[Rfam]
RNA sequence: AGACGAACACGAUGAAGGGAGCAUCCGUCGACAGUCGGAAAACAGAACUGUCAUGGAGUUGCUCUCUUUACCGUUAAGUCA
Number, nucleotide and partner (000 for none) at each position: 001a000002g000003a000004c000005g000006a000007a000008c000009a000010c000011g000012a000013u000014g069015a068016a067017g066018g065019g000020a063021g062022c061023a000024u057025c056026c055027g054028u000029c000030g052031a051032c050033a000034g048035u047036c000037g000038g000039a000040a000041a000042a000043c000044a000045g000046a000047a035048c034049u000050g032051u031052c030053a000054u027055g026056g025057a024058g000059u000060u000061g022062c021063u020064c000065u018066c017067u016068u015069u014070a000071c000072c000073g000074u000075u000076a000077a000078g000079u000080c000081a000